[Rfam]
RNA sequence: CCACGUCCCGACGCACUCCCCCCGGCGCCGGGACCACCCCAGCCGGGCUUCGGCACCCUCCCCCCCCCGGGUGCCGAAGCCCGGCUCUUCU
Numbered sequence: 001c002c003a004c005g006u007c008c009c010g011a012c013g014c015a016c017u018c019c020c021c022c023c024g025g026c027g028c029c030g031g032g033a034c035c036a037c038c039c040c041a042g043c044c045g046g047g048c049u050u051c052g053g054c055a056c057c058c059u060c061c062c063c064c065c066c067c068c069g070g071g072u073g074c075c076g077a078a079g080c081c082c083g084g085c086u087c088u089u090c091u
Base pairs, nucleotide, nucleotide: 005034006033007032008031009030010029012027013026014025041086042085043084044083045082046081047080048079049078051076052075053074054073055072056071057070058069
Dot-bracket structure: ....((((((.(((..........))).))))))......(((((((((.((((((((..........)))))))).))))))))).....

Streptomyces RNA 3202: a 91-nucleotide RNA from Streptomyces acidiscabies. A reference for the family is Vockenhuber et al. (2011), "Deep sequencing-based identification of small non-coding RNAs in Streptomyces coelicolor", RNA Biol. Rfam classes the family as a small RNA. Pairs were carried over by alignment from the consensus structure.